[Rfam]
RNA: Archaeal large subunit ribosomal RNA, nucleotides 667 to 922
RNA sequence: GAGUGUACGGCAGGGGCGAGGCUAAGGAGUGAAACUCCGAAGCCGGAGGGAAACCGACAGCCCGCAGCUUAUGCGAGGGGCGGGGUGUGCUCGCCUGUAGUCCCUGCCGUACGACCCGAAGCCGGGCGAUCUAGGCGGGGGCAGGGUGAAGCGGUGCGAAAGCGCCGUGGAGGCCCGCAGGGGUGUUGAUGUGCAAAUCGCUCCUCUGACCCCCGUCUAGGGGUGAAAGUCCAAUCGAGCCCGGGGAUAGCUGGUU
Numbered sequence: 001g002a003g004u005g006u007a008c009g010g011c012a013g014g015g016g017c018g019a020g021g022c023u024a025a026g027g028a029g030u031g032a033a034a035c036u037c038c039g040a041a042g043c044c045g046g047a048g049g050g051a052a053a054c055c056g057a058c059a060g061c062c063c064g065c066a067g068c069u070u071a072u073g074c075g076a077g078g079g080g081c082g083g084g085g086u087g088u089g090c091u092c093g094c095c096u097g098u099a100g101u102c103c104c105u106g107c108c109g110u111a112c113g114a115c116c117c118g119a120a121g122c123c124g125g126g127c128g129a130u131c132u133a134g135g136c137g138g139g140g141g142c143a144g145g146g147u148g149a150a151g152c153g154g155u156g157c158g159a160a161a162g163c164g165c166c167g168u169g170g171a172g173g174c175c176c177g178c179a180g181g182g183g184u185g186u187u188g189a190u191g192u193g194c195a196a197a198u199c200g201c202u203c204c205u206c207u208g209a210c211c212c213c214c215g216u217c218u219a220g221g222g223g224u225g226a227a228a229g230u231c232c233a234a235u236c237g238a239g240c241c242c243g244g245g246g247a248u249a250g251c252u253g254g255u256u
Base pairs, nucleotide, nucleotide: 005112006111007110008109009108010107011106012105013104014103015102016101017100020044021043022042023041026038027037028036029035048055049054060081061080062079063078067074068073084095085094086093087092115254116253118251122244123243124242125241126240127239131220132219133218134217135216136215137214138213139212140211141210142208144176145175146174147173151168152167153166154165155164156163157162180205181204182203183202185201186200188199189198222232223231